The record is a 109-nucleotide RNA from Sphingorhabdus pulchriflava, which matches "TPP riboswitch aptamer (THI element)" in Rfam. Vitamin B(1) in its active form thiamin pyrophosphate (TPP) is an essential coenzyme that is synthesised by coupling of pyrimidine and thiazole moieties in bacteria.

Nucleotides: 109
Stems, first nucleotide, its partner, number of pairs: 007096004011059004017028003035053007065090003071084004
Number, partner (000 for none) and nucleotide at each position: 001000c002000c003000c004000c005000c006000a007096u008095c009094c010093c011059c012058g013057g014056g015000g016000a017028g018027c019026c020000u021000g022000c023000u024000g025000u026019g027018g028017c029000u030000g031000a032000g033000a034000g035053g036052g037051a038050u039049g040048g041047g042000u043000a044000a045000g046000c047041u048040c049039c050038a051037u052036c053035c054000g055000a056014c057013c058012c059011g060000u061000u062000g063000a064000a065090c066089c067088u068000g069000a070000a071084c072083c073082c074081g075000u076000u077000a078000g079000c080000a081074c082073g083072g084071g085000c086000g087000g088067a089066g090065g091000g092000a093010g094009g095008g096007a097000g098000c099000g100000g101000c102000u103000u104000c105000a106000u107000u108000c109000g
Its family is annotated with thiamine pyrophosphate binding in the Gene Ontology.